Notes
Shown here is a 202-nucleotide sequence from Dasypus novemcinctus, a member of the family "Small nucleolar RNA SNORA74". By type it is an H/ACA-box small nucleolar RNA. Rfam's curators put it in the seed alignment. Rfam's curators write: U19 belongs to the H/ACA class of snoRNAs. snoRNAs bind a number of proteins (including dyskerin, Gar1p and Nop10p in the case of the H/ACA class) to form snoRNP complexes. This class are thought to guide the sites of modification of uridines to pseudouridines by forming direct base pairing interactions with substrate RNAs. Targets may include ribosomal and spliceosomal RNAs but the exact functions of many snoRNAs, including U19, are not confirmed.
RNA sequence: ACCAGCAGUUGUCAGCUUUCCAGGCCAGUGUGAUGCCUGUGAUGGUGUUACACUGUUGGAAGAGGAAGCACUACCUUUACUGUGGUCUGGCCCCAAGCACUGUUUUGGUGAUGAGGGCAAGUACCUAUAGGGCAGUGUUUUGCACCUCUGAGAGUGGAGUGGCUCCCUUUGUGGGCUUGGUCCUAGUCUGGGUGCAAACAGU
Numbered sequence: 001a002c003c004a005g006c007a008g009u010u011g012u013c014a015g016c017u018u019u020c021c022a023g024g025c026c027a028g029u030g031u032g033a034u035g036c037c038u039g040u041g042a043u044g045g046u047g048u049u050a051c052a053c054u055g056u057u058g059g060a061a062g063a064g065g066a067a068g069c070a071c072u073a074c075c076u077u078u079a080c081u082g083u084g085g086u087c088u089g090g091c092c093c094c095a096a097g098c099a100c101u102g103u104u105u106u107g108g109u110g111a112u113g114a115g116g117g118c119a120a121g122u123a124c125c126u127a128u129a130g131g132g133c134a135g136u137g138u139u140u141u142g143c144a145c146c147u148c149u150g151a152g153a154g155u156g157g158a159g160u161g162g163c164u165c166c167c168u169u170u171g172u173g174g175g176c177u178u179g180g181u182c183c184u185a186g187u188c189u190g191g192g193u194g195c196a197a198a199c200a201g202u
Stems, first nucleotide, its partner, number of pairs: 002059008011051002015046003019042002021039005068138005074132003082128004087121002090118003094113002098110004140197008156183003160179003164175003
Taxonomically the source falls in Dasypus (Eukaryota, Chordata, Sarcopterygii, Dipnotetrapodomorpha).